RNA: Yersinia sRNA 224
RNA sequence: CAGACUGCUGACAAAGUGCCCGCUACGGAGAGAACAGGCAGAUCGUAAAGACGCCGUUAAUACGUCCAUGUAGGCUCGUGCCGCGCCAUCCCUGGCGCGGACGCUUU
Numbered sequence: 001c002a003g004a005c006u007g008c009u010g011a012c013a014a015a016g017u018g019c020c021c022g023c024u025a026c027g028g029a030g031a032g033a034a035c036a037g038g039c040a041g042a043u044c045g046u047a048a049a050g051a052c053g054c055c056g057u058u059a060a061u062a063c064g065u066c067c068a069u070g071u072a073g074g075c076u077c078g079u080g081c082c083g084c085g086c087c088a089u090c091c092c093u094g095g096c097g098c099g100g101a102c103g104c105u106u107u
Base pairs, nucleotide, nucleotide: 013107014106015105016104017103018102020028021027022026030077031076032075041066042065043064045063046062047061051057052056081100082099083098084097085096086095087094088093